[Rfam]
RNA sequence: GCAUUGGUUUAGGUCGGUGGUUACUUCCUCAAAUCUUUCAGAUUACGUGGUUCUCUCCCUAACUGGGAUGAAACCUCCGGUACUGUCCAGUGUUUUU
Numbered sequence: 001g002c003a004u005u006g007g008u009u010u011a012g013g014u015c016g017g018u019g020g021u022u023a024c025u026u027c028c029u030c031a032a033a034u035c036u037u038u039c040a041g042a043u044u045a046c047g048u049g050g051u052u053c054u055c056u057c058c059c060u061a062a063c064u065g066g067g068a069u070g071a072a073a074c075c076u077c078c079g080g081u082a083c084u085g086u087c088c089a090g091u092g093u094u095u096u097u
Base pairs, nucleotide, nucleotide: 002092003091004090005089006088007087012081014080015079017078019076020075025072026071027070029068